The family of this 127-nucleotide sequence from Phyllostomus discolor is "Small nucleolar RNA SNORA63". By type it is an H/ACA-box small nucleolar RNA.
[Rfam]
RNA sequence: AUGCAGGUACUGUUACGAUACAACUGAAGUGUUUUAUUGUUGUUCCCCAUGCUUAAAACAAUUGAUGCAUAACUAUCUCUGUCUAGCACAAUUUCAUAACAAGACAGAGAUACUUGGUCUCAAACAU
Numbered sequence: 001a002u003g004c005a006g007g008u009a010c011u012g013u014u015a016c017g018a019u020a021c022a023a024c025u026g027a028a029g030u031g032u033u034u035u036a037u038u039g040u041u042g043u044u045c046c047c048c049a050u051g052c053u054u055a056a057a058a059c060a061a062u063u064g065a066u067g068c069a070u071a072a073c074u075a076u077c078u079c080u081g082u083c084u085a086g087c088a089c090a091a092u093u094u095c096a097u098a099a100c101a102a103g104a105c106a107g108a109g110a111u112a113c114u115u116g117g118u119c120u121c122a123a124a125c126a127u
Stems, first nucleotide, its partner, number of pairs: 003052003007048001015040006022033003078108004083103002086100001